This 134-nucleotide sequence from Sus scrofa belongs to the Rfam family "Small nucleolar RNA SNORA31". The family has 5 seed sequences and 2,094 matches in Rfam 15.1. Gene Ontology terms of the family: RNA processing and nucleolus. The family's consensus secondary structure was predicted with RNAalifold. Rfam's curators write: ACA31 (SNORA31) belongs to the H/ACA class of snoRNAs which are thought to guide the sites of modification of uridines to pseudouridines. ACA31 is predicted to guide the pseudouridylation of U3713 in 28S rRNA and U218 in 18S rRNA. This family includes the mouse homologue snoMBI-161.
[Rfam]
RNA sequence: AUGCAUCUAUCUGACAGGCCUGGAGCAGUUGCUGUCUGCUCCUCGGGUUUCCACUACCAAUGCAAAAAGAAAGUAUCCUUGAGCUUACUGUCUGUCUGAUUGUGGCAGCCCAGAUUGAAUGGGGGAAUACAGGG
Numbered sequence: 001a002u003g004c005a006u007c008u009a010u011c012u013g014a015c016a017g018g019c020c021u022g023g024a025g026c027a028g029u030u031g032c033u034g035u036c037u038g039c040u041c042c043u044c045g046g047g048u049u050u051c052c053a054c055u056a057c058c059a060a061u062g063c064a065a066a067a068a069g070a071a072a073g074u075a076u077c078c079u080u081g082a083g084c085u086u087a088c089u090g091u092c093u094g095u096c097u098g099a100u101u102g103u104g105g106c107a108g109c110c111c112a113g114a115u116u117g118a119a120u121g122g123g124g125g126a127a128u129a130c131a132g133g134g
Stems, first nucleotide, its partner, number of pairs: 002064005012053002016050005023041006076126005084117001088113003092108005